[Rfam]
RNA sequence: CUGCUUGCAUUCGGCCAGGCCACAGCUUAUUGUGAGGAUGCCGCAGGAUUUUCCCGCGGCUAUGGCGAUAAACGGUGUGUGGAAUAGGCGUAGUGGACCCGGGGGCGGUACCCGGCGUCUCCACCAGUAUCCGGGUUGCAUGACCCGGACCGCAGGGGACGAAACAGGCUCGACACGCGCAGUAAAGACACUUCUUUUGCCCGGCAUUGUACCACCGUCAUCGGGCUAAUUUCACAAGUGCCAAUGAUAACUCUGAGGUGCUCGCUGUCGCUGCAUAAGCGAUAAGCGCGGUUCGGGAGGGCACCGGGCAACAGAAGCCCUCCCA
Numbered sequence: 001c002u003g004c005u006u007g008c009a010u011u012c013g014g015c016c017a018g019g020c021c022a023c024a025g026c027u028u029a030u031u032g033u034g035a036g037g038a039u040g041c042c043g044c045a046g047g048a049u050u051u052u053c054c055c056g057c058g059g060c061u062a063u064g065g066c067g068a069u070a071a072a073c074g075g076u077g078u079g080u081g082g083a084a085u086a087g088g089c090g091u092a093g094u095g096g097a098c099c100c101g102g103g104g105g106c107g108g109u110a111c112c113c114g115g116c117g118u119c120u121c122c123a124c125c126a127g128u129a130u131c132c133g134g135g136u137u138g139c140a141u142g143a144c145c146c147g148g149a150c151c152g153c154a155g156g157g158g159a160c161g162a163a164a165c166a167g168g169c170u171c172g173a174c175a176c177g178c179g180c181a182g183u184a185a186a187g188a189c190a191c192u193u194c195u196u197u198u199g200c201c202c203g204g205c206a207u208u209g210u211a212c213c214a215c216c217g218u219c220a221u222c223g224g225g226c227u228a229a230u231u232u233c234a235c236a237a238g239u240g241c242c243a244a245u246g247a248u249a250a251c252u253c254u255g256a257g258g259u260g261c262u263c264g265c266u267g268u269c270g271c272u273g274c275a276u277a278a279g280c281g282a283u284a285a286g287c288g289c290g291g292u293u294c295g296g297g298a299g300g301g302c303a304c305c306g307g308g309c310a311a312c313a314g315a316a317g318c319c320c321u322c323c324c325a
Stems, first nucleotide, its partner, number of pairs: 040060005064201005074194002077191004089179003093176003099115005116161007202217003207228001209226001212224002289306004296322002299319002